About this RNA: Shown here is a 93-nucleotide sequence from Paraburkholderia tropica, a member of the family "Fluoride riboswitch aptamer (crcB RNA motif)". A search with the family's covariance model found it, with a score of 45 bits.
RNA sequence: UCGUGCGCAGGAGAUGGCAUUCCUCCUGCAUUUUCCCCAACCGCCGGACCGGCAGCGCUGCUUCCUGCUCCGGCUGAUGAUGCCUGCGAGUCC
Numbered sequence: 001u002c003g004u005g006c007g008c009a010g011g012a013g014a015u016g017g018c019a020u021u022c023c024u025c026c027u028g029c030a031u032u033u034u035c036c037c038c039a040a041c042c043g044c045c046g047g048a049c050c051g052g053c054a055g056c057g058c059u060g061c062u063u064c065c066u067g068c069u070c071c072g073g074c075u076g077a078u079g080a081u082g083c084c085u086g087c088g089a090g091u092c093c
Stems, first nucleotide, its partner, number of pairs: 010026004016084006043074006
Dot-bracket structure: .........[[[[..((((((.]]]]................((((((....................))))))....)))))).........
Taxonomically the source falls in Paraburkholderia (Bacteria, Pseudomonadati, Pseudomonadota, Burkholderiaceae).